[Rfam]
RNA sequence: CUUGAGUGACCCCAGCCACAGGGGCGCCGCCCGGUCUUGGCCGUAGGUGGCGAGCAGUGCCUGUGCCUC
Numbered sequence: 001c002u003u004g005a006g007u008g009a010c011c012c013c014a015g016c017c018a019c020a021g022g023g024g025c026g027c028c029g030c031c032c033g034g035u036c037u038u039g040g041c042c043g044u045a046g047g048u049g050g051c052g053a054g055c056a057g058u059g060c061c062u063g064u065g066c067c068u069c
Stems, first nucleotide, its partner, number of pairs: 015025003028065003032059002037054002041050003
Overview
A member of the RNA family "ASpks TB sRNA" from Streptomyces zagrosensis, 69 nucleotides long.